[Rfam]
RNA sequence: UAGGAUGGCGUGCCUGAUACUUUGUCUCAAGCCUGUGAUAGAAAAAGGUGAGCAAAGUUUCAGGUGUCAUUCUGU
Numbered sequence: 001u002a003g004g005a006u007g008g009c010g011u012g013c014c015u016g017a018u019a020c021u022u023u024g025u026c027u028c029a030a031g032c033c034u035g036u037g038a039u040a041g042a043a044a045a046a047g048g049u050g051a052g053c054a055a056a057g058u059u060u061c062a063g064g065u066g067u068c069a070u071u072c073u074g075u
Stems, first nucleotide, its partner, number of pairs: 002073006011066007019058005026052004032048003
Shown here is a 75-nucleotide sequence from Dreissena polymorpha, a member of the family "mir-87 microRNA precursor family". Its family is annotated with RISC complex and miRNA-mediated post-transcriptional gene silencing in the Gene Ontology. The family's consensus secondary structure was predicted with RNAalifold. Lineage of the source: Eukaryota > Bivalvia > Autobranchia > Neoheterodontei > Dreissena.